[Rfam]
RNA sequence: CCAACAUGGAUACCCCAGGAGGCCACACUCCCUGGGCUCUAAGUGGCACACAGGAACAUAGGGCUCUGCCCCAUGACGUACAGCCCCUUUCCACAAUGUUGGAGAAGAAGCUGGGCCUUGAGUCUGAGCCUGCAUAUUCCUGUGACUUCUGAGUCCUGUGGACAAUGACUAAGAAAACAAACCAUACAAGAAACACUC
Numbered sequence: 001c002c003a004a005c006a007u008g009g010a011u012a013c014c015c016c017a018g019g020a021g022g023c024c025a026c027a028c029u030c031c032c033u034g035g036g037c038u039c040u041a042a043g044u045g046g047c048a049c050a051c052a053g054g055a056a057c058a059u060a061g062g063g064c065u066c067u068g069c070c071c072c073a074u075g076a077c078g079u080a081c082a083g084c085c086c087c088u089u090u091c092c093a094c095a096a097u098g099u100u101g102g103a104g105a106a107g108a109a110g111c112u113g114g115g116c117c118u119u120g121a122g123u124c125u126g127a128g129c130c131u132g133c134a135u136a137u138u139c140c141u142g143u144g145a146c147u148u149c150u151g152a153g154u155c156c157u158g159u160g161g162a163c164a165a166u167g168a169c170u171a172a173g174a175a176a177a178c179a180a181a182c183c184a185u186a187c188a189a190g191a192a193a194c195a196c197u198c
Stems, first nucleotide, its partner, number of pairs: 001102007012040001014036003018031004043094004053086002058079002061074001129190001131188002134185002147175004153163004
RNA: Small nucleolar RNA SNORA73 family
Organism: Castor canadensis